Shown here is a 97-nucleotide RNA from Mycoplasmopsis citelli, a member of the family "Bacterial small signal recognition particle RNA". Taxonomically the source falls in Mycoplasmopsis (Bacteria, Bacillati, Mycoplasmoidales, Metamycoplasmataceae). The family's consensus secondary structure is taken from published work. The family's RNA type in Rfam is non-coding RNA gene.
RNA sequence: UAAGUAAGCCGUUAAAACAAUAACCCACUAACCUGGUCAGGACAGAAAUGUAGCAGCCAAAUGAGGAAGUGUUGUGUUUGACGGUUUUUUAUUUUGC
Number, nucleotide and partner (000 for none) at each position: 001u000002a000003a000004g092005u091006a090007a089008g088009c084010c083011g082012u081013u080014a079015a000016a000017a075018c074019a073020a072021u071022a070023a000024c000025c066026c065027a000028c063029u000030a000031a000032c000033c000034u059035g058036g057037u056038c000039a000040g000041g000042a051043c050044a049045g000046a000047a000048a000049u044050g043051u042052a000053g000054c000055a000056g037057c036058c035059a034060a000061a000062u000063g028064a000065g026066g025067a000068a000069g000070u022071g021072u020073u019074g018075u017076g000077u000078u000079u014080g013081a012082c011083g010084g009085u000086u000087u000088u008089u007090u006091a005092u004093u000094u000095u000096g000097c000